[Rfam]
RNA sequence: GACCUCCUGUGAAUUGGCACAGUGAGAAGGGCUGAUUGGGGCCACUACU
Dot-bracket structure: ...((((((((......))))).)))...((((......))))......

Shown here is a 49-nucleotide RNA sequence from Flavonifractor sp. An306, a member of the family "gut-2 RNA". By type it is a small RNA. It scores 44 bits against the family's covariance model.